[Rfam]
FMN riboswitch aptamer (RFN element): a 152-nucleotide RNA from Shimwellia blattae. The base pairs follow the family's consensus structure, which is taken from published work. Rfam's curators write: The RFN element is a highly conserved domain that is found frequently in the 5'-untranslated regions of prokaryotic mRNAs that encode for flavin mononucleotide (FMN) biosynthesis and transport proteins. Lineage of the source: Bacteria > Pseudomonadota > Gammaproteobacteria > Shimwellia > Shimwellia blattae. The family has 146 seed sequences and 6,230 matches in Rfam 15.1. A search with the family's covariance model found it, with a score of 118 bits.
RNA sequence: GUUUAUUCUCAGGGCGGGGUGAAACUCCCCACCGGCGGUAAAUCAGCCAUGGCGCUGAAAGCCCGCGAGCGCUCCGGAGUGAUGUCCGGAGGUCAGCAGAUCCGGUGUAAUUCCGGGGCCGACGGUCAUAGUCCGGAUGGGAGAGAGUAACU
Numbered sequence: 001g002u003u004u005a006u007u008c009u010c011a012g013g014g015c016g017g018g019g020u021g022a023a024a025c026u027c028c029c030c031a032c033c034g035g036c037g038g039u040a041a042a043u044c045a046g047c048c049a050u051g052g053c054g055c056u057g058a059a060a061g062c063c064c065g066c067g068a069g070c071g072c073u074c075c076g077g078a079g080u081g082a083u084g085u086c087c088g089g090a091g092g093u094c095a096g097c098a099g100a101u102c103c104g105g106u107g108u109a110a111u112u113c114c115g116g117g118g119c120c121g122a123c124g125g126u127c128a129u130a131g132u133c134c135g136g137a138u139g140g141g142a143g144a145g146a147g148u149a150a151c152u
Stems, first nucleotide, its partner, number of pairs: 003150008017029003031132002033121002035066004061119002069097002101117005123135003